[Rfam]
Nucleotides: 309
Stems, first nucleotide, its partner, number of pairs: 001269007015084005027071003032066002036064004040059004046053001277299003280294005
Number, partner (000 for none) and nucleotide at each position: 001269g002268g003267a004266a005265g006264c007263g008000u009000g010000u011000g012000c013000u014000a015084g016083u017082g018081a019080u020000g021000g022000c023000a024000c025000a026000a027071c028070u029069g030000a031000a032066c033065a034000u035000u036064g037063a038062u039061c040059g041058c042057u043056a044000a045000c046053g047000u048000u049000a050000g051000a052000g053046c054000u055000a056043u057042g058041g059040c060000a061039g062038a063037u064036c065033u066032g067000c068000u069029c070028a071027g072000u073000g074000g075000g076000u077000g078000u079000u080019g081018u082017c083016a084015c085000g086000u087000u088000g089000u090000c091000g092000u093000a094000a095000g096000c097000u098000u099000c100000a101000a102000g103000u104000a105000g106000c107000u108000u109000g110000a111000g112000u113000g114000u115000c116000a117000g118000a119000c120000u121000c122000c123000c124000g125000a126000u127000u128000g129000c130000g131000c132000a133000u134000g135000c136000a137000u138000c139000u140000u141000c142000g143000u144000g145000g146000c147000u148000c149000g150000u151000c152000u153000u154000a155000c156000g157000a158000u159000c160000a161000c162000g163000g164000a165000u166000u167000u168000g169000c170000a171000c172000g173000c174000c175000u176000g177000c178000a179000c180000g181000g182000u183000c184000u185000g186000a187000g188000u189000c190000u191000u192000c193000a194000c195000g196000u197000c198000a199000c200000u201000c202000c203000u204000c205000g206000a207000a208000g209000u210000a211000c212000c213000g214000c215000g216000a217000u218000u219000u220000c221000c222000a223000a224000a225000u226000u227000g228000g229000g230000g231000g232000g233000c234000a235000a236000u237000c238000g239000a240000a241000u242000a243000g244000g245000u246000c247000a248000g249000a250000c251000g252000a253000g254000g255000u256000a257000a258000u259000u260000u261000g262000u263007c264006g265005c266004u267003u268002c269001c270000a271000u272000a273000u274000g275000c276000a277299g278298g279297c280294a281293c282292u283291g284290c285000u286000g287000a288000u289000g290284g291283c292282g293281g294280u295000a296000c297279g298278c299277c300000a301000u302000u303000u304000u305000u306000u307000g308000u309000c